[Rfam]
RNA sequence: ACCGGUCUCCGGUAGUGGCCUCCGGGCAUCCGGCAUCUCGCCGAUCCGCCCGGGCGCUUCGAUCGAAGACCGGC
Numbered sequence: 001a002c003c004g005g006u007c008u009c010c011g012g013u014a015g016u017g018g019c020c021u022c023c024g025g026g027c028a029u030c031c032g033g034c035a036u037c038u039c040g041c042c043g044a045u046c047c048g049c050c051c052g053g054g055c056g057c058u059u060c061g062a063u064c065g066a067a068g069a070c071c072g073g074c
Base pairs, nucleotide, nucleotide: 002073003072004071005070006069007068010065011064012063013062017058018057019056021054022053023052024051025050026049031048032047033046
Dot-bracket structure: .((((((..((((...(((.((((((....(((............))))))))).)))...))))..)))))).

The family of this 74-nucleotide sequence from Salinispora tropica is "Actino-pnp RNA". Pairs were carried over by alignment from the consensus structure, which is taken from published work. Rfam classes the family as a cis-regulatory element.